[Rfam]
Nucleotides: 072
Base pairs, nucleotide, nucleotide: 002039003038004037009035010034013030014029018070019069020068021067022066
Number, partner (000 for none) and nucleotide at each position: 001000a002039u003038c004037u005000c006000c007000a008000g009035c010034c011000g012000a013030a014029a015000g016000u017000u018070c019069u020068a021067g022066g023000u024000u025000g026000c027000a028000a029014u030013u031000g032000u033000c034010g035009g036000u037004g038003g039002g040000a041000u042000c043000u044000g045000u046000c047000g048000u049000a050000a051000g052000c053000u054000c055000a056000a057000a058000u059000a060000u061000a062000u063000a064000g065000g066022c067021c068020u069019a070018g071000c072000a
Background:
The family of this 72-nucleotide RNA sequence is "Exoribonuclease-resistant RNA (xrRNA) plant-infecting virus (class 3)". Rfam classes the family as a cis-regulatory element. The family's consensus secondary structure is taken from published work. Rfam describes the family as follows. Exoribonuclease-resistant RNA (xrRNA) plant-infecting virus (class 3) is a ncRNA that was reported in Plant viruses.